Small nucleolar RNA SNORD79: a 75-nucleotide sequence from Danionella cerebrum. Rfam describes the family as follows. snoRNA U79 or Z22 is found in intron 7 of the gas5 gene in humans and is also present in mice. The match comes from Rfam's covariance-model search (48 bits). Its family is annotated with RNA processing and nucleolus in the Gene Ontology. The family has 28 seed sequences and 784 matches in Rfam 15.1. Clan: SNORD74 clan. Pairs were carried over by alignment from the consensus structure, which was predicted with PFOLD. On this family, see Galardi et al., Mol Cell Biol 2002: "Purified box C/D snoRNPs are able to reproduce site-specific 2'-O-methylation of target RNA in vitro".
[Rfam]
RNA sequence: CAUUGUGAAUGAUGAUAAACUGUGGGAAUCUCUCCGAAUGAGACUGAAGGAAAAUAUUUGUUUAUUGACUCAGUG
Numbered sequence: 001c002a003u004u005g006u007g008a009a010u011g012a013u014g015a016u017a018a019a020c021u022g023u024g025g026g027a028a029u030c031u032c033u034c035c036g037a038a039u040g041a042g043a044c045u046g047a048a049g050g051a052a053a054a055u056a057u058u059u060g061u062u063u064a065u066u067g068a069c070u071c072a073g074u075g
Stems, first nucleotide, its partner, number of pairs: 001075005007069001